[Rfam]
Nucleotides: 213
Base pairs, nucleotide, nucleotide: 009046010045011044012043015042016041021040022039023038024037025036026035027034028033073089074088075087076086077085091130092129093127094126095125154179156177157176185205186204187203188202189201190200191199
Number, partner (000 for none) and nucleotide at each position: 001000c002000a003000g004000c005000a006000g007000c008000u009046a010045g011044c012043c013000u014000g015042g016041a017000c018000g019000g020000c021040u022039u023038g024037a025036u026035u027034c028033u029000c030000u031000c032000u033028a034027g035026a036025a037024u038023c039022a040021a041016u042015u043012g044011g045010c046009u047000u048000a049000g050000c051000u052000c053000c054000u055000g056000c057000g058000a059000u060000g061000u062000u063000g064000u065000g066000u067000u068000u069000g070000c071000a072000a073089a074088c075087u076086c077085g078000u079000a080000c081000u082000u083000u084000u085077c086076g087075a088074g089073u090000u091130g092129g093127g094126u095125a096000g097000a098000g099000u100000u101000c102000u103000a104000c105000c106000a107000a108000a109000u110000g111000u112000u113000u114000u115000g116000u117000u118000g119000c120000a121000g122000u123000u124000a125095u126094a127093c128000a129092c130091u131000g132000a133000a134000a135000c136000g137000a138000g139000g140000c141000a142000u143000c144000u145000a146000c147000u148000u149000c150000c151000u152000g153000u154179a155000u156177u157176u158000a159000u160000u161000u162000u163000g164000a165000c166000c167000u168000g169000u170000c171000u172000g173000u174000c175000a176157a177156a178000u179154u180000u181000g182000u183000u184000u185205a186204c187203a188202c189201c190200g191199c192000c193000u194000a195000u196000a197000c198000g199191g200190c201189g202188g203187u204186g205185u206000u207000u208000u209000u210000u211000u212000a213000u